RNA sequence: CUGACCUGAAGAGGUGCAGAAGUCAGGUACCCACCGGUAGGUGUCAUACUCUUGAUAAUAAAGAGUGCCGAUGACCGGUGGCAAUGGGACUUCCUGCCGAAAUACACACGGUGAAUGACCGCCGCUGGUAUUGGUUCCGUGGGCUGAAUCCCCGGAAUUGUCACGAUUCGUCUUUACUGUAAAGGCUUUCGUGGAGCGCUUUGGGUGAU
Numbered sequence: 001c002u003g004a005c006c007u008g009a010a011g012a013g014g015u016g017c018a019g020a021a022g023u024c025a026g027g028u029a030c031c032c033a034c035c036g037g038u039a040g041g042u043g044u045c046a047u048a049c050u051c052u053u054g055a056u057a058a059u060a061a062a063g064a065g066u067g068c069c070g071a072u073g074a075c076c077g078g079u080g081g082c083a084a085u086g087g088g089a090c091u092u093c094c095u096g097c098c099g100a101a102a103u104a105c106a107c108a109c110g111g112u113g114a115a116u117g118a119c120c121g122c123c124g125c126u127g128g129u130a131u132u133g134g135u136u137c138c139g140u141g142g143g144c145u146g147a148a149u150c151c152c153c154g155g156a157a158u159u160g161u162c163a164c165g166a167u168u169c170g171u172c173u174u175u176a177c178u179g180u181a182a183a184g185g186c187u188u189u190c191g192u193g194g195a196g197c198g199c200u201u202u203g204g205g206u207g208a209u
Stems, first nucleotide, its partner, number of pairs: 006204006016097004021091004031081007101132005109124004133159007141152003161194006

Shown here is a 209-nucleotide RNA from a Rhodothermaceae bacterium, a member of the family "Lysine riboswitch aptamer". Pairs were carried over by alignment from the consensus structure, which is taken from published work. The match comes from Rfam's covariance-model search (69 bits). The organism belongs to Rhodothermaceae, within Bacteria. Riboswitches are metabolite binding domains within certain messenger RNAs that serve as precision sensors for their corresponding targets.